[Rfam]
RNA sequence: UCCUUCUCCCCUACCCAUAGCAUAUUGGAGUUGUGAAUUCUAGAAACAACUCCUAUAUGCAUGGAUUACAGGAGAG
Numbered sequence: 001u002c003c004u005u006c007u008c009c010c011c012u013a014c015c016c017a018u019a020g021c022a023u024a025u026u027g028g029a030g031u032u033g034u035g036a037a038u039u040c041u042a043g044a045a046a047c048a049a050c051u052c053c054u055a056u057a058u059g060c061a062u063g064g065a066u067u068a069c070a071g072g073a074g075a076g
Base pairs, nucleotide, nucleotide: 003074004073005072006071007070015064016063017062018061020060021059022058023057024056025055027053028052029051030050032048033047034046
Notes
The record is a 76-nucleotide sequence from Cricetulus griseus, which matches "mir-660 microRNA precursor family" in Rfam. The organism belongs to Cricetulus, within Eukaryota. The match comes from Rfam's covariance-model search (88 bits). Gene Ontology terms of the family: RISC complex and miRNA-mediated post-transcriptional gene silencing.